[Rfam]
RNA sequence: UGCGUAUGAUGCGACAACGAUAUAUUUGCUACUUCAGAGAACUUUCGAGUUCAAUGAGACUACCUUUCCACCAAGAUCUCUGACGCG
Number, nucleotide and partner (000 for none) at each position: 001u087002g086003c085004g084005u000006a000007u000008g000009a000010u000011g000012c000013g000014a000015c000016a000017a000018c000019g000020a000021u000022a000023u000024a000025u000026u000027u000028g000029c000030u000031a000032c000033u000034u000035c000036a000037g000038a000039g000040a000041a000042c000043u000044u000045u000046c000047g000048a000049g000050u000051u000052c000053a000054a000055u000056g000057a000058g000059a000060c000061u000062a000063c000064c000065u000066u000067u000068c000069c000070a000071c000072c000073a000074a000075g000076a000077u000078c000079u000080c000081u000082g000083a000084c004085g003086c002087g001
RNA: Small nucleolar RNA SNORD24